Shown here is a 163-nucleotide RNA from Oryctes borbonicus, a member of the family "U1 spliceosomal RNA". The organism belongs to Oryctes, within Eukaryota. The family has 100 seed sequences and 40,184 matches in Rfam 15.1. Rfam's curators write: U1 is a small nuclear RNA (snRNA) component of the spliceosome (involved in pre-mRNA splicing). Rfam classes the family as a spliceosomal small nuclear RNA. The family's consensus secondary structure is taken from published work.

RNA sequence: AUACUUACCUGGCGUAGGGGUUACCGUGAUCAGCAAGGCGGUUCCCCCAGGACGAGGCCCUUCCAUUGCACUACGGUCGGGCUGACACCUGCGAUUACCCCUAAUGCGGGUAACUCGGGCGCGUAAUUUUUGGUAGUCGGGACUGCGUACGCGCUGUCCCGGU
Numbered sequence: 001a002u003a004c005u006u007a008c009c010u011g012g013c014g015u016a017g018g019g020g021u022u023a024c025c026g027u028g029a030u031c032a033g034c035a036a037g038g039c040g041g042u043u044c045c046c047c048c049a050g051g052a053c054g055a056g057g058c059c060c061u062u063c064c065a066u067u068g069c070a071c072u073a074c075g076g077u078c079g080g081g082c083u084g085a086c087a088c089c090u091g092c093g094a095u096u097a098c099c100c101c102u103a104a105u106g107c108g109g110g111u112a113a114c115u116c117g118g119g120c121g122c123g124u125a126a127u128u129u130u131u132g133g134u135a136g137u138c139g140g141g142a143c144u145g146c147g148u149a150c151g152c153g154c155u156g157u158c159c160c161g162g163u
Stems, first nucleotide, its partner, number of pairs: 012122004017047004023042005049090003054086001056083003060079001063076002092117003095113003099109002137162006145154003